[Rfam]
RNA sequence: AAUGUUACCCAAACAAAAGCGCUGACCUGAGUUCAAUGCAGUAAGUGCUUCUGUUGGGGUAGUGUUG
Numbered sequence: 001a002a003u004g005u006u007a008c009c010c011a012a013a014c015a016a017a018a019g020c021g022c023u024g025a026c027c028u029g030a031g032u033u034c035a036a037u038g039c040a041g042u043a044a045g046u047g048c049u050u051c052u053g054u055u056g057g058g059g060u061a062g063u064g065u066u067g
Base pairs, nucleotide, nucleotide: 004063005062006061007060008059009058010057013054014053015052017050018049019048020047021046022045023044025042026041
Dot-bracket structure: ...(((((((..(((.(((((((.((..............)).))))))).)))..)))))))....